[Rfam]
RNA sequence: AAGAAGCCCUGAUGACCAACCAAUGCAUAGUUCACACUGAAUGCAAUUUGUGAAGAUACCAACGAUUUUAGUCUUUCGCUCCUAUCUGACUGGCUUUCU
Numbered sequence: 001a002a003g004a005a006g007c008c009c010u011g012a013u014g015a016c017c018a019a020c021c022a023a024u025g026c027a028u029a030g031u032u033c034a035c036a037c038u039g040a041a042u043g044c045a046a047u048u049u050g051u052g053a054a055g056a057u058a059c060c061a062a063c064g065a066u067u068u069u070a071g072u073c074u075u076u077c078g079c080u081c082c083u084a085u086c087u088g089a090c091u092g093g094c095u096u097u098c099u
Base pairs, nucleotide, nucleotide: 004096005095006094007093008092
RNA: Small nucleolar RNA snR60/Z15/Z230/Z193/J17
Organism: Zygosaccharomyces rouxii